[Rfam]
RNA: MIR5269 microRNA precursor family
Organism: Medicago truncatula
RNA sequence: UUAGGUGAAAUCAAUGUUAACUUACACUUUGUCAAUGGAACCCACAUAAAGUGAUGGGAUAUAUAUUGAUUUCACCCAA
Numbered sequence: 001u002u003a004g005g006u007g008a009a010a011u012c013a014a015u016g017u018u019a020a021c022u023u024a025c026a027c028u029u030u031g032u033c034a035a036u037g038g039a040a041c042c043c044a045c046a047u048a049a050a051g052u053g054a055u056g057g058g059a060u061a062u063a064u065a066u067u068g069a070u071u072u073c074a075c076c077c078a079a
Stems, first nucleotide, its partner, number of pairs: 001079002004076014022057003025053007
Dot-bracket structure: ((.((((((((((((((....((((((((((...............))))))).))).....)))))))))))))).))